[Rfam]
RNA sequence: AAUAUUUAAUGCAAUUUUAUUUUUUUGGUUUCUUUUUUAUCCCCCCAAACAGGGAGGCCGGAUUUGUUUGUCCAUAAGAAACCAAGAAACAAUCCAUAAAGCCUCCCAAACGGGAGGCUUUUUUUAU
Numbered sequence: 001a002a003u004a005u006u007u008a009a010u011g012c013a014a015u016u017u018u019a020u021u022u023u024u025u026u027g028g029u030u031u032c033u034u035u036u037u038u039a040u041c042c043c044c045c046c047a048a049a050c051a052g053g054g055a056g057g058c059c060g061g062a063u064u065u066g067u068u069u070g071u072c073c074a075u076a077a078g079a080a081a082c083c084a085a086g087a088a089a090c091a092a093u094c095c096a097u098a099a100a101g102c103c104u105c106c107c108a109a110a111c112g113g114g115a116g117g118c119u120u121u122u123u124u125u126a127u
Stems, first nucleotide, its partner, number of pairs: 018092001021089014036074001039071001043054003056068003098121010

The record is a 127-nucleotide sequence from Celerinatantimonas diazotrophica, which matches "Phenylalanine leader peptide" in Rfam. Lineage of the source: Bacteria > Pseudomonadota > Gammaproteobacteria > Celerinatantimonadaceae > Celerinatantimonas. A reference for the family is Zurawski et al. (1978), "Nucleotide sequence of the leader region of the phenylalanine operon of Escherichia coli", Proc Natl Acad Sci U S A. Rfam links the family to the GO term cellular amino acid metabolic process. Pairs were carried over by alignment from the consensus structure, which was predicted with CMfinder.